This 173-nucleotide RNA from Sporolactobacillus inulinus belongs to the Rfam family "Group II catalytic intron D1-D4-3". NCBI's taxonomy places the organism under Bacteria, Bacillota, Bacilli, Caryophanales, Sporolactobacillus inulinus. Rfam describes the family as follows. Group II introns are found in rRNA, tRNA and mRNA of organelles in fungi, plants and protists, and also in mRNA in bacteria.
[Rfam]
RNA sequence: UCUCCCGUGAGGGAGAAUCUGAAGGAAGUCUAAAGCAAAGUGCUGAACUGAUGCACAAGAACCAGCUAUAAGGCUGUGCGUCAUGGAUAAGGUUGCUAAACAAACCAAAGUCCGAUACCGCCCAAAAUGACGAGCAGUAGAGUUGGCAGUUACAUGGCACGAAGGUUAUCGCU
Numbered sequence: 001u002c003u004c005c006c007g008u009g010a011g012g013g014a015g016a017a018u019c020u021g022a023a024g025g026a027a028g029u030c031u032a033a034a035g036c037a038a039a040g041u042g043c044u045g046a047a048c049u050g051a052u053g054c055a056c057a058a059g060a061a062c063c064a065g066c067u068a069u070a071a072g073g074c075u076g077u078g079c080g081u082c083a084u085g086g087a088u089a090a091g092g093u094u095g096c097u098a099a100a101c102a103a104a105c106c107a108a109a110g111u112c113c114g115a116u117a118c119c120g121c122c123c124a125a126a127a128u129g130a131c132g133a134g135c136a137g138u139a140g141a142g143u144u145g146g147c148a149g150u151u152a153c154a155u156g157g158c159a160c161g162a163a164g165g166u167u168a169u170c171g172c173u
Base pairs, nucleotide, nucleotide: 001016002015003014004013005012006011028173030171032169035166036165040160041159042158043157044156045155046151047150048149049148050147062146063145064144065143066142067141073138074137075136077134079132080131081130082129083128085113086112087111088110091106092105093104094103